This 65-nucleotide RNA from Sylvia borin belongs to the Rfam family "Selenocysteine insertion sequence 1".
The organism belongs to Sylvia, within Eukaryota.
The family's consensus secondary structure is taken from published work.
From the family's description: The incorporation of selenocysteine into a protein sequence is directed by an in-frame UGA codon (usually a stop codon) within the coding region of the mRNA. Selenoprotein mRNAs contain a conserved secondary structure in the 3' UTR that is required for the distinction of UGA stop from UGA selenocysteine. The selenocysteine insertion sequence (SECIS) is around 60 nt in length and adopts a hairpin structure which is sufficiently well-defined and conserved to act as a computational screen for selenoprotein genes.
[Rfam]
RNA sequence: CUCUCCGUAGAAUGACAGCCCCCUCUGAAACCUCCAAGGGGAGGGGGCUCGAUGGGGGCAGAGGG
Number, nucleotide and partner (000 for none) at each position: 001c065002u064003c063004u062005c061006c000007g000008u000009a000010g000011a000012a000013u000014g000015a000016c000017a049018g048019c047020c046021c045022c044023c043024u042025c041026u040027g000028a000029a000030a000031c039032c038033u037034c000035c000036a000037a033038g032039g031040g026041g025042a024043g023044g022045g021046g020047g019048c018049u017050c000051g000052a000053u000054g000055g000056g000057g000058g000059c000060a000061g005062a004063g003064g002065g001